[Rfam]
Shown here is a 64-nucleotide RNA sequence from Conger conger, a member of the family "Selenocysteine insertion sequence 1". Rfam's curators write: The incorporation of selenocysteine into a protein sequence is directed by an in-frame UGA codon (usually a stop codon) within the coding region of the mRNA. Selenoprotein mRNAs contain a conserved secondary structure in the 3' UTR that is required for the distinction of UGA stop from UGA selenocysteine. The selenocysteine insertion sequence (SECIS) is around 60 nt in length and adopts a hairpin structure which is sufficiently well-defined and conserved to act as a computational screen for selenoprotein genes. The source organism's lineage runs through Eukaryota, Eumetazoa, Neopterygii, Congridae and Conger. The family's consensus secondary structure is taken from published work. Rfam classes the family as a cis-regulatory element.
RNA sequence: CUUGCUUUUAUGAGGACAGGUGCAGAAACUAUGCUCUAGUGGUGCCUGUCUGAUGCUGUGCAAU
Numbered sequence: 001c002u003u004g005c006u007u008u009u010a011u012g013a014g015g016a017c018a019g020g021u022g023c024a025g026a027a028a029c030u031a032u033g034c035u036c037u038a039g040u041g042g043u044g045c046c047u048g049u050c051u052g053a054u055g056c057u058g059u060g061c062a063a064u
Stems, first nucleotide, its partner, number of pairs: 002063004015050009029039003

The family has 61 seed sequences and 3,793 matches in Rfam 15.1.